This 251-nucleotide RNA sequence from Halalkalibacter krulwichiae belongs to the Rfam family "BsrG". The family has 6 seed sequences and 614 matches in Rfam 15.1. The match comes from Rfam's covariance-model search (86 bits). bsrE, bsrG and bsrH pair through intermolecular interactions with antisense sRNAs. They form type I toxin/antitoxin system that includes an mRNA encoding for a short, toxic peptide (bsrE, bsrG and bsrH) and an antitoxin that is comprised of an antisense RNA. bsrG encodes a 39-amino-acid toxin, and the 180 nucleotide antisense sRNA called SR4 acts as the antitoxin (they overlap by 123 nucleotides). SR4 interaction with the 3'UTR of bsrG RNA promotes bsrG degradation and inhibits its translation. BsrG interferes with cell envelope biosynthesis, causes membrane invaginations and delocalisation of the cell wall synthesis and initiates autolysis. bsrE RNA encodes 30 amino-acid toxin peptide.
RNA sequence: CAACUGAAUAUUGCUUCUCAAGGGUGGAGGCAUUUCAUCCCCAUUGAAAGGGGGUGAGGCCAAUGACCGUGUUUGAAUCACUUAUGCUUAUGGUUGCAUUUGCGACACUGGUAGUUGUGAUACUUACGGCUAACAAUAAAAAAUAAUCCACCCUUACUCUAGAGAAGCUGGGUGGAUCUUGCCAAAUGUAUGAUCUGCCGCCCCUUGAAGGGCAGUUCUUUUGCAUCCCGGUGUUGUUACCAGCAACAUCG
Numbered sequence: 001c002a003a004c005u006g007a008a009u010a011u012u013g014c015u016u017c018u019c020a021a022g023g024g025u026g027g028a029g030g031c032a033u034u035u036c037a038u039c040c041c042c043a044u045u046g047a048a049a050g051g052g053g054g055u056g057a058g059g060c061c062a063a064u065g066a067c068c069g070u071g072u073u074u075g076a077a078u079c080a081c082u083u084a085u086g087c088u089u090a091u092g093g094u095u096g097c098a099u100u101u102g103c104g105a106c107a108c109u110g111g112u113a114g115u116u117g118u119g120a121u122a123c124u125u126a127c128g129g130c131u132a133a134c135a136a137u138a139a140a141a142a143a144u145a146a147u148c149c150a151c152c153c154u155u156a157c158u159c160u161a162g163a164g165a166a167g168c169u170g171g172g173u174g175g176a177u178c179u180u181g182c183c184a185a186a187u188g189u190a191u192g193a194u195c196u197g198c199c200g201c202c203c204c205u206u207g208a209a210g211g212g213c214a215g216u217u218c219u220u221u222u223g224c225a226u227c228c229c230g231g232u233g234u235u236g237u238u239a240c241c242a243g244c245a246a247c248a249u250c251g
Base pairs, nucleotide, nucleotide: 001223002222003221006218007217008216011197013195015193016192020155021154022153023152024151026148027147035057036056037055039054040053041052042051065127069123070122071121078093079092080091105116169184170183200213201212202211203210229251230250231249232248233247234246235245236244237243238242